[Rfam]
RNA sequence: GCAUUGGUGGUUCAGUGGUAGAAUUCUUGCCUGCCACACAGGAGGCCUGGGUUCGAUUCCCAGCCAAUGCA
Numbered sequence: 001g002c003a004u005u006g007g008u009g010g011u012u013c014a015g016u017g018g019u020a021g022a023a024u025u026c027u028u029g030c031c032u033g034c035c036a037c038a039c040a041g042g043a044g045g046c047c048u049g050g051g052u053u054c055g056a057u058u059c060c061c062a063g064c065c066a067a068u069g070c071a
Stems, first nucleotide, its partner, number of pairs: 001070007010024004026042004047063005

Shown here is a 71-nucleotide RNA from Formicarius rufipectus, a member of the family "tRNA". The family's RNA type in Rfam is transfer RNA. About the family: Transfer RNA (tRNA) molecules are approximately 80 nucleotides in length. The family is grouped with related families in Rfam's "tRNA clan". The base pairs follow the family's consensus structure, which is taken from published work. The organism belongs to Formicarius, within Eukaryota. A search with the family's covariance model found it, with a score of 62 bits.